[Rfam]
This 108-nucleotide sequence from Lupinus angustifolius belongs to the Rfam family "Plant small nucleolar RNA R71". Lineage of the source: Eukaryota > Euphyllophyta > eudicotyledons > Fabaceae > Lupinus. Its family is annotated with nucleolus and RNA processing in the Gene Ontology. Rfam 15.1 lists 278,378 matches to the family in 216 species. A reference for the family is Brown et al. (2003), "Plant snoRNAs: functional evolution and new modes of gene expression", Trends Plant Sci. The family's RNA type in Rfam is C/D-box small nucleolar RNA. It scores 42 bits against the family's covariance model.

RNA sequence: AUACCAUGACGAGGGCAAGUUUCAGUCAACUCAUUUAAUCUUUCUCAUACUUCAACAAUUGACUCCCCAUACUUUUGACUGAAGUUCUAGAUGAGGUGCCUAUAGUGC
Numbered sequence: 001a002u003a004c005c006a007u008g009a010c011g012a013g014g015g016c017a018a019g020u021u022u023c024a025g026u027c028a029a030c031u032c033a034u035u036u037a038a039u040c041u042u043u044c045u046c047a048u049a050c051u052u053c054a055a056c057a058a059u060u061g062a063c064u065c066c067c068c069a070u071a072c073u074u075u076u077g078a079c080u081g082a083a084g085u086u087c088u089a090g091a092u093g094a095g096g097u098g099c100c101u102a103u104a105g106u107g108c
Stems, first nucleotide, its partner, number of pairs: 003106002006101001057074002060071001